[Rfam]
RNA sequence: CGAGAGUGCCCUUCUGGGUUGGUGUGAUCUGAGUUCUUGACAAACCCGAUCAUCCCAGCUCAGAGGGCACUCUCGUCACAUAUUCGCGCUGUUCCGGCCACAGUGGAUCACCCGUCGUCCACG
Dot-bracket structure: .((((((((((((.(((.((((..((((..(.(((.......))).).))))..)))).))))))))))))))).............................(((((.(....).)))))..
Actinobacteria sRNA Ms_IGR-7: a 123-nucleotide RNA sequence from Micromonospora inyonensis. The pairing is the family consensus, mapped onto this sequence. NCBI's taxonomy places the organism under Bacteria, Bacillati, Actinomycetota, Micromonosporales, Micromonospora. For this family Rfam cites "Identification of small RNAs in Mycobacterium smegmatis using heterologous Hfq" (Li et al., RNA, 2013).